[Rfam]
RNA sequence: CACUUUUCCGUAUGCAACUGUGUUCCUCUAUUUGACGCUAAAGGUGGAUGUUCUAGUGAAACACUUCACAAGUGUUAUUGUUAUCUUUGGUAGUAUUCUUACCUUUCGUGUCAAGAGAAGAACACACUUGCCCACCGAUAGGAC
Numbered sequence: 001c002a003c004u005u006u007u008c009c010g011u012a013u014g015c016a017a018c019u020g021u022g023u024u025c026c027u028c029u030a031u032u033u034g035a036c037g038c039u040a041a042a043g044g045u046g047g048a049u050g051u052u053c054u055a056g057u058g059a060a061a062c063a064c065u066u067c068a069c070a071a072g073u074g075u076u077a078u079u080g081u082u083a084u085c086u087u088u089g090g091u092a093g094u095a096u097u098c099u100u101a102c103c104u105u106u107c108g109u110g111u112c113a114a115g116a117g118a119a120g121a122a123c124a125c126a127c128u129u130g131c132c133c134a135c136c137g138a139u140a141g142g143a144c
Stems, first nucleotide, its partner, number of pairs: 003142003007138001009137002014131004019126007027118003031115008040106006046098006053090003058084001060082004067074002

This 144-nucleotide RNA from Miscanthus lutarioriparius belongs to the Rfam family "MIR6234 microRNA precursor family". Taxonomically the source falls in Miscanthus (Eukaryota, Streptophytina, Tracheophyta, Spermatophyta). Gene Ontology terms of the family: RISC complex and miRNA-mediated post-transcriptional gene silencing.